[Rfam]
RNA sequence: GUUGGGGUAGGAACUCCAGAGUUAUUGUCCAGCGGAACGGAAUGUGAACGCUGGAAGGAGGCCGCAGGGCUGCUUUGGUUUUCCGCAUUCACCAC
Numbered sequence: 001g002u003u004g005g006g007g008u009a010g011g012a013a014c015u016c017c018a019g020a021g022u023u024a025u026u027g028u029c030c031a032g033c034g035g036a037a038c039g040g041a042a043u044g045u046g047a048a049c050g051c052u053g054g055a056a057g058g059a060g061g062c063c064g065c066a067g068g069g070c071u072g073c074u075u076u077g078g079u080u081u082u083c084c085g086c087a088u089u090c091a092c093c094a095c
Base pairs, nucleotide, nucleotide: 001095003094004093005092010084011083012082013081016078017077018076019075021073022072025056026055029054030053031052032051033050034049040090041089042088043087044086060071061070062069063068
Rfam assigns this 95-nucleotide RNA from Limosilactobacillus antri to the family "THF (Tetrahydrofolate) riboswitch aptamer". For this family Rfam cites "A eubacterial riboswitch class that senses the coenzyme tetrahydrofolate" (Ames et al., Chem Biol, 2010). Rfam describes the family as follows. Tetrahydrofolate (THF) riboswitch was first reported for Ames et al. as an RNA motif in 5' untranslated (5'-UTR)regions of folate transport and biosynthesis genes in Firmicutes genomes. The source organism's lineage runs through Bacteria, Bacillati, Bacilli, Lactobacillales and Limosilactobacillus antri.